[Rfam]
RNA sequence: AGCACUGUGUGUGCACAGUUUCCCAUCUGUGUCUGGUGGUAGGGUCUGUGUGUGUUCUGCACGUAGACUGUACUGCUCACACAAAACCUGUGGCCAAAGAUGAACCUGAGAUCAUAGUACUGGUCCAGUGAUGUCUGCAGGACAGCCUCCCACUGACCAGCCUCCACACUCUCAAACAUCU
Numbered sequence: 001a002g003c004a005c006u007g008u009g010u011g012u013g014c015a016c017a018g019u020u021u022c023c024c025a026u027c028u029g030u031g032u033c034u035g036g037u038g039g040u041a042g043g044g045u046c047u048g049u050g051u052g053u054g055u056u057c058u059g060c061a062c063g064u065a066g067a068c069u070g071u072a073c074u075g076c077u078c079a080c081a082c083a084a085a086a087c088c089u090g091u092g093g094c095c096a097a098a099g100a101u102g103a104a105c106c107u108g109a110g111a112u113c114a115u116a117g118u119a120c121u122g123g124u125c126c127a128g129u130g131a132u133g134u135c136u137g138c139a140g141g142a143c144a145g146c147c148u149c150c151c152a153c154u155g156a157c158c159a160g161c162c163u164c165c166a167c168a169c170u171c172u173c174a175a176a177c178a179u180c181u
Base pairs, nucleotide, nucleotide: 013091014090015089030083031082032081034079035078036077037075038074039073040072041071044068045067046066047065048064051061052060053059107174108173109172110171111170120160121159122158123157124156125155127154128153129152130151132144133143134142135141
Source information
Shown here is a 181-nucleotide RNA sequence from Cyanistes caeruleus, a member of the family "Small nucleolar RNA SNORA23". The members of this family belong to the H/ACA class of snoRNAs which are thought to guide the sites of modification of uridines to pseudouridines. The literature on the family includes a 2001 paper in EMBO J by Huttenhofer et al., "RNomics: an experimental approach that identifies 201 candidates for novel, small, non-messenger RNAs in mouse". It scores 135 bits against the family's covariance model. Gene Ontology terms of the family: RNA processing and nucleolus. Rfam classes the family as an H/ACA-box small nucleolar RNA. Taxonomically the source falls in Cyanistes (Eukaryota, Deuterostomia, Aves, Neognathae).